[Rfam]
RNA sequence: CCGGCUUGUGUGAUGAUUUACCAUAGCAUAGUUCAUCUGAAGACAUGAUGACAAUUUGUAUUGAAAUUAGUCUUUCGCUCCCAUCUGACUAGCCUA
Number, nucleotide and partner (000 for none) at each position: 001c000002c000003g000004g093005c092006u091007u000008g089009u000010g000011u000012g000013a000014u000015g000016a000017u000018u000019u000020a000021c000022c000023a000024u000025a000026g000027c000028a000029u000030a000031g000032u000033u000034c000035a000036u000037c000038u000039g000040a000041a000042g000043a000044c000045a000046u000047g000048a000049u000050g000051a000052c000053a000054a000055u000056u000057u000058g000059u000060a000061u000062u000063g000064a000065a000066a000067u000068u000069a000070g000071u000072c000073u000074u000075u000076c000077g000078c000079u000080c000081c000082c000083a000084u000085c000086u000087g000088a000089c008090u000091a006092g005093c004094c000095u000096a000
The record is a 96-nucleotide sequence from Cytospora chrysosperma, which matches "Small nucleolar RNA snR60/Z15/Z230/Z193/J17" in Rfam. A search with the family's covariance model found it, with a score of 68 bits.